[Rfam]
RNA sequence: CCGCGCUAUGCGGGGAAGUAGCGGAGCCCUGAACCUGCAAUCCGCUGUAGCAGGGCAGAAGCCUGUAUUGCGGCUGGCAUUUGUGGGGUUUGCCCCUGGCAAGUAGCGAUGACAGUUGGGUCCGACGCAACAUGAACCCAUGAACCCCGUCAGGUCCGGAAGGAAGCAGCGGUAAGUGUGCAAGCGUGUGUGCCGUCGGGUAGCCUGAUUCGAGUUAACUACUAGGGUUAGCGACCGGAAGUGUUAGUCAAAGACAGGGCGCGG
Number, nucleotide and partner (000 for none) at each position: 001c264002c263003g262004c261005g260006c259007u258008a000009u057010g056011c055012g030013g029014g028015g027016a000017a000018g000019u023020a000021g000022c000023g019024g000025a000026g000027c015028c014029c013030u012031g000032a000033a000034c054035c053036u052037g051038c050039a000040a000041u000042c000043c000044g000045c000046u000047g000048u000049a000050g038051c037052a036053g035054g034055g011056c010057a009058g000059a000060a000061g000062c000063c257064u256065g255066u254067a000068u252069u251070g000071c000072g249073g248074c247075u246076g245077g000078c243079a242080u241081u240082u239083g000084u237085g236086g235087g000088g000089u000090u000091u000092g228093c000094c000095c226096c225097u224098g223099g222100c000101a000102a000103g219104u218105a216106g215107c214108g000109a000110u000111g000112a000113c000114a210115g209116u208117u207118g206119g205120g204121u203122c199123c198124g197125a196126c195127g194128c190129a189130a000131c188132a187133u186134g185135a000136a000137c180138c000139c178140a177141u176142g000143a000144a000145c000146c000147c172148c171149g170150u169151c000152a000153g000154g000155u164156c163157c162158g000159g000160a000161a000162g157163g156164a155165a000166g000167c000168a000169g150170c149171g148172g147173u000174a000175a000176g141177u140178g139179u000180g137181c000182a000183a000184g000185c134186g133187u132188g131189u129190g128191u000192g000193c000194c127195g126196u125197c124198g123199g122200g000201u000202a000203g121204c120205c119206u118207g117208a116209u115210u114211c000212g000213a000214g107215u106216u105217a000218a104219c103220u000221a000222c099223u098224a097225g096226g095227g000228u092229u000230a000231g000232c000233g000234a000235c086236c085237g084238g000239a082240a081241g080242u079243g078244u000245u076246a075247g074248u073249c072250a000251a069252a068253g000254a066255c065256a064257g063258g007259g006260c005261g004262c003263g002264g001

Bacterial large signal recognition particle RNA: a 264-nucleotide RNA from a Selenomonadales bacterium.
The base pairs follow the family's consensus structure, which is taken from published work.
It is annotated as a non-coding RNA gene.
For this family Rfam cites "SRPDB: Signal Recognition Particle Database" (Rosenblad et al., Nucleic Acids Res, 2003).